c-di-AMP riboswitch aptamer (ydaO/yuaA leader): a 189-nucleotide RNA sequence from Nocardioides sp. Root190.
It scores 62 bits against the family's covariance model.
RNA sequence: GCGGGCAUCGCGCUGAGUCCGGGGCCAUUCGUGGUCCCGGAGCCGGGGAACCAACCACAUCUGGGGUGAAUCCCGCACGAGGUGCGCGUACGACGACCCGAUCGGGUCGGCGGACACGCGAGGAGUGCGGGUAGGGCAAGUCGUGCCCGAACCCGUCAGCUCACCCGGUAGGCGUACGACACCGCAAAG
Numbered sequence: 001g002c003g004g005g006c007a008u009c010g011c012g013c014u015g016a017g018u019c020c021g022g023g024g025c026c027a028u029u030c031g032u033g034g035u036c037c038c039g040g041a042g043c044c045g046g047g048g049a050a051c052c053a054a055c056c057a058c059a060u061c062u063g064g065g066g067u068g069a070a071u072c073c074c075g076c077a078c079g080a081g082g083u084g085c086g087c088g089u090a091c092g093a094c095g096a097c098c099c100g101a102u103c104g105g106g107u108c109g110g111c112g113g114a115c116a117c118g119c120g121a122g123g124a125g126u127g128c129g130g131g132u133a134g135g136g137c138a139a140g141u142c143g144u145g146c147c148c149g150a151a152c153c154c155g156u157c158a159g160c161u162c163a164c165c166c167g168g169u170a171g172g173c174g175u176a177c178g179a180c181a182c183c184g185c186a187a188a189g
Stems, first nucleotide, its partner, number of pairs: 011174004018041010042169006052063002064154003072131007134148004